The record is a 79-nucleotide sequence from Flavobacterium aquatile, which matches "Flavo-1 RNA" in Rfam. By type it is a small RNA. The match comes from Rfam's covariance-model search (61 bits).
RNA sequence: AAUUAGCCCUGAUUGGAGCAAAUAUCCUUUUUCUUUUUUCUUUAAAAAGGAAAAGAUAUUGCGGAAAGCAGGAACAUGG
Numbered sequence: 001a002a003u004u005a006g007c008c009c010u011g012a013u014u015g016g017a018g019c020a021a022a023u024a025u026c027c028u029u030u031u032u033c034u035u036u037u038u039u040c041u042u043u044a045a046a047a048a049g050g051a052a053a054a055g056a057u058a059u060u061g062c063g064g065a066a067a068g069c070a071g072g073a074a075c076a077u078g079g
Base pairs, nucleotide, nucleotide: 009071010070011069013067014066018062019061024057025056026055030052031051032050033049034048036047037046038045